[Rfam]
RNA: 6S / SsrS RNA
Organism: Halopseudomonas salegens
RNA sequence: UUGUCCCUGGGGUGUUUGCCAGUCGGAGAUGUCCCUGAGCCGAUACUUCUGUACCAGGGGGCUGCUUGCCACAGCCAGUGUGCAUGUCCGCAUGACGGAAAGCCUUAGGCCUGGCGGCAUCCUCCGCCUUGAACUUUCGGGUUCAAGGGCUAACCCGACAGCGGCAUUCCCGGGGACUCU
Numbered sequence: 001u002u003g004u005c006c007c008u009g010g011g012g013u014g015u016u017u018g019c020c021a022g023u024c025g026g027a028g029a030u031g032u033c034c035c036u037g038a039g040c041c042g043a044u045a046c047u048u049c050u051g052u053a054c055c056a057g058g059g060g061g062c063u064g065c066u067u068g069c070c071a072c073a074g075c076c077a078g079u080g081u082g083c084a085u086g087u088c089c090g091c092a093u094g095a096c097g098g099a100a101a102g103c104c105u106u107a108g109g110c111c112u113g114g115c116g117g118c119a120u121c122c123u124c125c126g127c128c129u130u131g132a133a134c135u136u137u138c139g140g141g142u143u144c145a146a147g148g149g150c151u152a153a154c155c156c157g158a159c160a161g162c163g164g165c166a167u168u169c170c171c172g173g174g175g176a177c178u179c180u
Base pairs, nucleotide, nucleotide: 003177004176005175006174007173008172009171010170011169012167013166014165015164017163018162019161031150032149033148034147036145037144038143039142040141041140057125058124059123061121063119064118065117066116068115072113073112074111076109082103083102087099088098089097090096